[Rfam]
RNA sequence: CGGUGAGGUAGAGGCGCGAGUAAGAAAAGUAAUCCAUAUGAGGAUGACAACGAUGAUUAUGGAUGAAAGGCUUAUUUGCCGAAGCGUAAUAAGGGUCGAACUUAUUAUUUGCUGGGGUGUCUUUGAAUAAGAGGCACACUGUCAUGCGGCCGACCGCAUGGAGGACUACAGAUCGU
Number, nucleotide and partner (000 for none) at each position: 001c000002g000003g000004u000005g000006a000007g000008g169009u168010a167011g166012a000013g000014g000015c000016g079017c078018g077019a076020g075021u074022a073023a072024g071025a000026a000027a000028a000029g000030u000031a000032a064033u063034c062035c061036a060037u059038a058039u000040g000041a000042g000043g000044a000045u000046g000047a000048c000049a000050a000051c000052g000053a000054u000055g000056a000057u000058u038059a037060u036061g035062g034063a033064u032065g000066a000067a000068a000069g000070g000071c024072u023073u022074a021075u020076u019077u018078g017079c016080c000081g000082a000083a113084g112085c111086g110087u107088a106089a105090u104091a103092a102093g101094g000095g000096u000097c000098g000099a000100a000101c093102u092103u091104a090105u089106u088107a087108u000109u000110u086111g085112c084113u083114g140115g139116g000117g137118u136119g135120u134121c133122u132123u131124u130125g000126a000127a000128u000129a000130a124131g123132a122133g121134g120135c119136a118137c117138a000139c115140u114141g000142u161143c160144a159145u158146g157147c156148g155149g000150c000151c000152g000153a000154c000155c148156g147157c146158a145159u144160g143161g142162a000163g000164g000165a000166c011167u010168a009169c008170a000171g000172a000173u000174c000175g000176u000